[Rfam]
The family of this 126-nucleotide RNA from Fukomys damarensis is "Small nucleolar RNA SNORA40". Rfam describes the family as follows. The snoRNA ACA 40 belongs to the H/ACA family of snoRNAs and guides the pseudouridylation of 28S rRNA subunit at position U4565. NB This family has a high threshold value to exclude a large number of closely related sequences that do not appear to have conserved H and ACA boxes, and may be pseudogenes. A reference for the family is Ofengand and Bakin (1997), "Mapping to nucleotide resolution of pseudouridine residues in large subunit ribosomal RNAs from representative eukaryotes, prokaryotes, archaebacteria, mitochondria and chloroplasts", J Mol Biol. Rfam links the family to the GO terms RNA processing and nucleolus. The family's RNA type in Rfam is H/ACA-box small nucleolar RNA.

RNA sequence: GGCACCUGUGUGUAUUUAUUCAACUUGUGGUCUAAGACUCAUGGACAAGUGCAAAAAAUGAAUCCAUUCUUCCAAGCCAGAAGUCAUCAUUCAGUAUGAGUUCUGAUACAUAUAAGCCAGAAUAUC
Numbered sequence: 001g002g003c004a005c006c007u008g009u010g011u012g013u014a015u016u017u018a019u020u021c022a023a024c025u026u027g028u029g030g031u032c033u034a035a036g037a038c039u040c041a042u043g044g045a046c047a048a049g050u051g052c053a054a055a056a057a058a059u060g061a062a063u064c065c066a067u068u069c070u071u072c073c074a075a076g077c078c079a080g081a082a083g084u085c086a087u088c089a090u091u092c093a094g095u096a097u098g099a100g101u102u103c104u105g106a107u108a109c110a111u112a113u114a115a116g117c118c119a120g121a122a123u124a125u126c
Stems, first nucleotide, its partner, number of pairs: 002052004007047003011043001012038002015035002024029001062123002065120001069116003078105005084099004